[Rfam]
RNA sequence: UGUCUCCUCCACCUCUCCUUGAGAUGGAUUCGCCCGCAAACCGCAAGGUCUGCGGGCUUUUUUU
Numbered sequence: 001u002g003u004c005u006c007c008u009c010c011a012c013c014u015c016u017c018c019u020u021g022a023g024a025u026g027g028a029u030u031c032g033c034c035c036g037c038a039a040a041c042c043g044c045a046a047g048g049u050c051u052g053c054g055g056g057c058u059u060u061u062u063u064u
Stems, first nucleotide, its partner, number of pairs: 008028004013023003032057007